Fluoride riboswitch aptamer (crcB RNA motif): a 77-nucleotide RNA sequence from Aerococcus suis.
[Rfam]
RNA sequence: UAAUAUAUUGGGAAUGAAUUCUCCCGUAGAAAUAACAAUUUCUAAAACCGCUUUUAGCUGAUGACUUCUCCCCUACU
Numbered sequence: 001u002a003a004u005a006u007a008u009u010g011g012g013a014a015u016g017a018a019u020u021c022u023c024c025c026g027u028a029g030a031a032a033u034a035a036c037a038a039u040u041u042c043u044a045a046a047a048c049c050g051c052u053u054u055u056a057g058c059u060g061a062u063g064a065c066u067u068c069u070c071c072c073c074u075a076c077u
Stems, first nucleotide, its partner, number of pairs: 010025004016068003020064002050058002
A reference for the family is Baker et al. (2012), "Widespread genetic switches and toxicity resistance proteins for fluoride", Science.